About this RNA
Small nucleolar RNA SNORA74: a 203-nucleotide RNA from Glaucidium brasilianum. A reference for the family is Bortolin and Kiss (1998), "Human U19 intron-encoded snoRNA is processed from a long primary transcript that possesses little potential for protein coding", RNA. It is annotated as an H/ACA-box small nucleolar RNA. Lineage of the source: Eukaryota > Deuterostomia > Neognathae > Strigiformes > Glaucidium.
[Rfam]
RNA sequence: UCCAGUGGUAGUCAGCUGUCCAGAGCAGUACUGCGCCUGCGAUGGUGUUACACUGCUGGGAGAUAAAGAUCAGUCAUUUCUUCUGGCUGCUGUUGUCACCGUUCUGGAGGCAGCUGAUGCCAAAAAGGAAUGGCCUUGUGCUUCCCUGAGAGCGCGCUAAAGAUUUGCUGUGCCUCUUUAGUGCUAGUCCGGAAGCAUACAUU
Numbered sequence: 001u002c003c004a005g006u007g008g009u010a011g012u013c014a015g016c017u018g019u020c021c022a023g024a025g026c027a028g029u030a031c032u033g034c035g036c037c038u039g040c041g042a043u044g045g046u047g048u049u050a051c052a053c054u055g056c057u058g059g060g061a062g063a064u065a066a067a068g069a070u071c072a073g074u075c076a077u078u079u080c081u082u083c084u085g086g087c088u089g090c091u092g093u094u095g096u097c098a099c100c101g102u103u104c105u106g107g108a109g110g111c112a113g114c115u116g117a118u119g120c121c122a123a124a125a126a127g128g129a130a131u132g133g134c135c136u137u138g139u140g141c142u143u144c145c146c147u148g149a150g151a152g153c154g155c156g157c158u159a160a161a162g163a164u165u166u167g168c169u170g171u172g173c174c175u176c177u178u179u180a181g182u183g184c185u186a187g188u189c190c191g192g193a194a195g196c197a198u199a200c201a202u203u
Base pairs, nucleotide, nucleotide: 001060002059003058004057005056006055007054008053009052011051012050015046016045017044018043019042020041021039022038023037068135070133071132072131074129075128082126084124087119090116092114094112095111096110097109099107100106138198139197140196141195142194143193144192145191154184155183156182158180159179160178161177162176163175